[Rfam]
RNA sequence: GAGUGUUACAGCUUACUUAAUUUGUCUAGCAGGCUUUCUGGUUUUCGCUGGAAAGCCGAA
Numbered sequence: 001g002a003g004u005g006u007u008a009c010a011g012c013u014u015a016c017u018u019a020a021u022u023u024g025u026c027u028a029g030c031a032g033g034c035u036u037u038c039u040g041g042u043u044u045u046c047g048c049u050g051g052a053a054a055g056c057c058g059a060a
Base pairs, nucleotide, nucleotide: 032057033056034055035054036053037052038051039050040049041048042047
Rfam assigns this 60-nucleotide sequence from Theropithecus gelada to the family "U7 small nuclear RNA". A search with the family's covariance model found it, with a score of 52 bits. Rfam's curators write: Animal histone pre-mRNAs are spliced by a different mechanism than nuclear pre-mRNAs and self-splicing introns. The base pairs follow the family's consensus structure, which was predicted with PFOLD.